[Rfam]
RNA sequence: UGUCGUCGCUGAAUUAGAGAUCGGCGAACGAUGUAUCAUUAACCACUUCAUAUUAGGAGUUAUUAUGUCUCUAAGUACUGAACAAAAAGCAAAAAUCGUUGCUGAAUUUGGUCGCGAUGGU
Numbered sequence: 001u002g003u004c005g006u007c008g009c010u011g012a013a014u015u016a017g018a019g020a021u022c023g024g025c026g027a028a029c030g031a032u033g034u035a036u037c038a039u040u041a042a043c044c045a046c047u048u049c050a051u052a053u054u055a056g057g058a059g060u061u062a063u064u065a066u067g068u069c070u071c072u073a074a075g076u077a078c079u080g081a082a083c084a085a086a087a088a089g090c091a092a093a094a095a096u097c098g099u100u101g102c103u104g105a106a107u108u109u110g111g112u113c114g115c116g117a118u119g120g121u
Stems, first nucleotide, its partner, number of pairs: 007026006053075002056072004
Dot-bracket structure: ......((((((........))))))..........................((.((((.........)))).))..............................................